A member of the RNA family "Selenocysteine transfer RNA" from Methanopyrus kandleri, 87 nucleotides long.

RNA sequence: GCCGCCGCCACCGGGGUGGUCCCCGGGCCGGACUUCAGAUCCGGCGCGCCCCGAGUGGGGCGCGGGGUUCAAUUCCCCGCGGCGGCC
Numbered sequence: 001g002c003c004g005c006c007g008c009c010a011c012c013g014g015g016g017u018g019g020u021c022c023c024c025g026g027g028c029c030g031g032a033c034u035u036c037a038g039a040u041c042c043g044g045c046g047c048g049c050c051c052c053g054a055g056u057g058g059g060g061c062g063c064g065g066g067g068u069u070c071a072a073u074u075c076c077c078c079g080c081g082g083c084g085g086c087c
Stems, first nucleotide, its partner, number of pairs: 001086008009026001012025005027045006047062005064078004
The sequence is in the family's curated seed alignment. Its family is annotated with triplet codon-amino acid adaptor activity in the Gene Ontology. NCBI's taxonomy places the organism under Archaea, Methanobacteriota, Methanopyri, Methanopyrales, Methanopyrus kandleri.